The family of this 48-nucleotide RNA sequence from Actinacidiphila reveromycinica is "L31-Actinobacteria ribosomal protein leader". The family's consensus secondary structure is taken from published work.
[Rfam]
RNA sequence: CUGGCCCCGGUUCACGCUCACGCAAACCCGCUGGAGCGACCCGGCGCC
Numbered sequence: 001c002u003g004g005c006c007c008c009g010g011u012u013c014a015c016g017c018u019c020a021c022g023c024a025a026a027c028c029c030g031c032u033g034g035a036g037c038g039a040c041c042c043g044g045c046g047c048c
Stems, first nucleotide, its partner, number of pairs: 003048003007044004015038005022031002
Description: Lineage of the source: Bacteria > Actinomycetes > Kitasatosporales > Streptomycetaceae > Actinacidiphila. The match comes from Rfam's covariance-model search (45 bits). Rfam classes the family as a cis-regulatory leader.